[Rfam]
RNA sequence: UUCCAAUCCAAAUACUUCUACCAACACAUUCAACCUUUUAACGUUUUUACGUUUCCAAACCACUCAAUCAACAUGUCUCCCUGCUCCUGCAACUGCUGCUCCGGCAACUGCAACUCCUGCUCUUGCUCCAACUGCAGCGUAAGUUGAC
Dot-bracket structure: .................................................................................((((...(((.....)))...))))...(((......((....))......))).............
The family of this 148-nucleotide RNA sequence from Uncinocarpus reesii is "A. fumigatus sRNA Afu_254".
The family has 6 seed sequences and 185 matches in Rfam 15.1.
A reference for the family is Jochl et al. (2008), "Small ncRNA transcriptome analysis from Aspergillus fumigatus suggests a novel mechanism for regulation of protein synthesis", Nucleic Acids Res.
It is annotated as a small RNA.